RNA sequence: CCAACAGAGUCUUUUGGCAUUCUGUCUACCUCCAUCAUCUCUGCUGCUAUUUUGGCAAUGGAGGUGGGCAUUUUGUUAACCAAGCUCUGUUGG
Numbered sequence: 001c002c003a004a005c006a007g008a009g010u011c012u013u014u015u016g017g018c019a020u021u022c023u024g025u026c027u028a029c030c031u032c033c034a035u036c037a038u039c040u041c042u043g044c045u046g047c048u049a050u051u052u053u054g055g056c057a058a059u060g061g062a063g064g065u066g067g068g069c070a071u072u073u074u075g076u077u078a079a080c081c082a083a084g085c086u087c088u089g090u091u092g093g
Base pairs, nucleotide, nucleotide: 014079015078016077017076018075019074023070024069025068026067027066028065029064030063031062032061033060034059035058
RNA: MIR394 microRNA precursor family